Bacterial RNase P class B: a 372-nucleotide RNA sequence from Vagococcus humatus. NCBI's taxonomy places the organism under Bacteria, Bacillati, Bacillota, Lactobacillales, Vagococcus. It is annotated as a ribozyme.
RNA sequence: GUUUUCGGGUAAUUGCGGCCUAGCUCAUCUAGGCUGAGGAAAGUCCAUGCUCGCACAAGCUGCGAUGCUUGUAGUGUUCGUGCUUAAUGAAAUCAUAAGUUAAGGGACUCUUAUUAGAGUUACGGCAGAAAAAAAAGCUAAGGUCUUUUGGCUAAGCUUGAGUAUUCUUGAAAGUGCCACAGUGACGAAGUGGUUUUAGAAAUAAAACCAGUGGAACGGGUAAACCCCUCGAGCGAGCAACCCAAACAAUGGUAGGGGCACUUUUUUCUCGGAAUUGAACGAAGAAAAGAGGCAGAAAUUAAUCUGUAGACAGAUAAUUACCGUUGAUAUUUUGUCCCUGGAAAAUAUCAAUACAGAACAUGGCUUAUAGAA
Numbered sequence: 001g002u003u004u005u006c007g008g009g010u011a012a013u014u015g016c017g018g019c020c021u022a023g024c025u026c027a028u029c030u031a032g033g034c035u036g037a038g039g040a041a042a043g044u045c046c047a048u049g050c051u052c053g054c055a056c057a058a059g060c061u062g063c064g065a066u067g068c069u070u071g072u073a074g075u076g077u078u079c080g081u082g083c084u085u086a087a088u089g090a091a092a093u094c095a096u097a098a099g100u101u102a103a104g105g106g107a108c109u110c111u112u113a114u115u116a117g118a119g120u121u122a123c124g125g126c127a128g129a130a131a132a133a134a135a136a137g138c139u140a141a142g143g144u145c146u147u148u149u150g151g152c153u154a155a156g157c158u159u160g161a162g163u164a165u166u167c168u169u170g171a172a173a174g175u176g177c178c179a180c181a182g183u184g185a186c187g188a189a190g191u192g193g194u195u196u197u198a199g200a201a202a203u204a205a206a207a208c209c210a211g212u213g214g215a216a217c218g219g220g221u222a223a224a225c226c227c228c229u230c231g232a233g234c235g236a237g238c239a240a241c242c243c244a245a246a247c248a249a250u251g252g253u254a255g256g257g258g259c260a261c262u263u264u265u266u267u268c269u270c271g272g273a274a275u276u277g278a279a280c281g282a283a284g285a286a287a288a289g290a291g292g293c294a295g296a297a298a299u300u301a302a303u304c305u306g307u308a309g310a311c312a313g314a315u316a317a318u319u320a321c322c323g324u325u326g327a328u329a330u331u332u333u334g335u336c337c338c339u340g341g342a343a344a345a346u347a348u349c350a351a352u353a354c355a356g357a358a359c360a361u362g363g364c365u366u367a368u369a370g371a372a
Stems, first nucleotide, its partner, number of pairs: 004372003007368001008322007016036006041366003045363005050237005055072006078232003082228001083104006105123001106121006124227002127168004135159004142153003174225002176221003191210008241257003261291007292307005324351009